[Rfam]
RNA sequence: AUGAUGAACGCGUGAUCUGCUGACGUUGUCAGCGACAUGCCCCCAUGCAGCUCGGAUCCGAAAUGCUGCAGCACAGCCCACCGUGUUGAUCCAACCCAAGACCGCAUAGCUUCUGGUAGCGCGGUCGGUCGGCCUCGGUCGAUAGAAGC
Numbered sequence: 001a002u003g004a005u006g007a008a009c010g011c012g013u014g015a016u017c018u019g020c021u022g023a024c025g026u027u028g029u030c031a032g033c034g035a036c037a038u039g040c041c042c043c044c045a046u047g048c049a050g051c052u053c054g055g056a057u058c059c060g061a062a063a064u065g066c067u068g069c070a071g072c073a074c075a076g077c078c079c080a081c082c083g084u085g086u087u088g089a090u091c092c093a094a095c096c097c098a099a100g101a102c103c104g105c106a107u108a109g110c111u112u113c114u115g116g117u118a119g120c121g122c123g124g125u126c127g128g129u130c131g132g133c134c135u136c137g138g139u140c141g142a143u144a145g146a147a148g149c
Stems, first nucleotide, its partner, number of pairs: 011039004016034001019033006047069005055091004070087005076081001121149002124143008